[Rfam]
RNA: Streptomyces-metK RNA
RNA sequence: GCGAGACAGGGGGGCCUGUCGGCGGGCACGACCGAUAAACUGUUCACGGACGAUGCCGGGCGCAGCUCCCGUCCCGUCCGCCAAUGAUCAGCCAGCAGCCGCUGCAACCACAGGGAG
Numbered sequence: 001g002c003g004a005g006a007c008a009g010g011g012g013g014g015c016c017u018g019u020c021g022g023c024g025g026g027c028a029c030g031a032c033c034g035a036u037a038a039a040c041u042g043u044u045c046a047c048g049g050a051c052g053a054u055g056c057c058g059g060g061c062g063c064a065g066c067u068c069c070c071g072u073c074c075c076g077u078c079c080g081c082c083a084a085u086g087a088u089c090a091g092c093c094a095g096c097a098g099c100c101g102c103u104g105c106a107a108c109c110a111c112a113g114g115g116a117g
Stems, first nucleotide, its partner, number of pairs: 048079005057071004093104004